[Rfam]
RNA sequence: GCAUGGCCAAAUGCUGUGUUCCUUUUAUCAGUCAUUUCCAGUCAGACACCGUGCAAAGGUAGUUUCCCCUUUGCAAUGACUAAUGGCAUCCUAGGUUUUGCCAUGGUCUAUCAUUAUUUCAAGUGGAUACGAAU
Numbered sequence: 001g002c003a004u005g006g007c008c009a010a011a012u013g014c015u016g017u018g019u020u021c022c023u024u025u026u027a028u029c030a031g032u033c034a035u036u037u038c039c040a041g042u043c044a045g046a047c048a049c050c051g052u053g054c055a056a057a058g059g060u061a062g063u064u065u066c067c068c069c070u071u072u073g074c075a076a077u078g079a080c081u082a083a084u085g086g087c088a089u090c091c092u093a094g095g096u097u098u099u100g101c102c103a104u105g106g107u108c109u110a111u112c113a114u115u116a117u118u119u120c121a122a123g124u125g126g127a128u129a130c131g132a133a134u
Base pairs, nucleotide, nucleotide: 001054002053003052004051005050006049014041015040016039065127066126067125068123070121073118081116082115083114084113085112086111088109091106092105093104
Rfam assigns this 134-nucleotide RNA sequence from Galemys pyrenaicus to the family "Small nucleolar RNA SNORA15". On this family, see Huttenhofer et al., EMBO J 2001: "RNomics: an experimental approach that identifies 201 candidates for novel, small, non-messenger RNAs in mouse". A search with the family's covariance model found it, with a score of 75 bits. ACA15 is a member of the H/ACA class of snoRNA that guide the sites of modification of uridines to pseudouridines. NCBI's taxonomy places the organism under Eukaryota, Deuterostomia, Sarcopterygii, Dipnotetrapodomorpha, Galemys.